[Rfam]
RNA sequence: GAAACCUCAUCUUGCUUACACGCCAUCCGGGCGUCGAGCAGUGCUUCCCCCGAGGGAAGACACAGGCACUCCGCCUGGAUGAGGAGAGAGG
Dot-bracket structure: ....((((((((..(((..(((((.....))))).)))..(((((((((....)))))).)))((((.....)))))))))))).......
RAGATH-10 RNA: a 91-nucleotide RNA sequence. For this family Rfam cites "New classes of self-cleaving ribozymes revealed by comparative genomics analysis" (Weinberg et al., Nat Chem Biol, 2015). It is one of the family's seed sequences. Rfam classes the family as a small RNA.